[Rfam]
RNA sequence: UAGCGAUAAUAGCAAACUUAGUGAAAACUAAGGACCGCAAAGCUAUGGGUCUUCCAGGUAAAGCUGAUGACAGCCAAGCUACCGAA
Numbered sequence: 001u002a003g004c005g006a007u008a009a010u011a012g013c014a015a016a017c018u019u020a021g022u023g024a025a026a027a028c029u030a031a032g033g034a035c036c037g038c039a040a041a042g043c044u045a046u047g048g049g050u051c052u053u054c055c056a057g058g059u060a061a062a063g064c065u066g067a068u069g070a071c072a073g074c075c076a077a078g079c080u081a082c083c084g085a086a
Stems, first nucleotide, its partner, number of pairs: 012038002017032006041080004046076003049071003056065002